[Rfam]
RNA sequence: CUUGUGGACUAUCAUAUCAACUGUAUUAGUGAGUUUUAUGCGAGGCAGGAUAGGGAGAAGCAAGAA
Numbered sequence: 001c002u003u004g005u006g007g008a009c010u011a012u013c014a015u016a017u018c019a020a021c022u023g024u025a026u027u028a029g030u031g032a033g034u035u036u037u038a039u040g041c042g043a044g045g046c047a048g049g050a051u052a053g054g055g056a057g058a059a060g061c062a063a064g065a066a
Base pairs, nucleotide, nucleotide: 001064002063003062004061005060009053010052011051012050013049021048022047023046029041030040031039
Rfam assigns this 66-nucleotide sequence to the family "RAGATH-18 RNA". The family's RNA type in Rfam is small RNA. Pairs were carried over by alignment from the consensus structure, which is taken from published work.